[Rfam]
RNA sequence: AGAUCGGGAGGCUUUCGUUGGGUGAAAGCCAGGCAUUGAUCUUAUCUUGCGAUCUCGUAUGGGGGCGCGGCUGGUACCCGACAGCGCGCGCG
Dot-bracket structure: (((((....((((((((.....)))))))).......)))))......................((((.((((........))))..)))).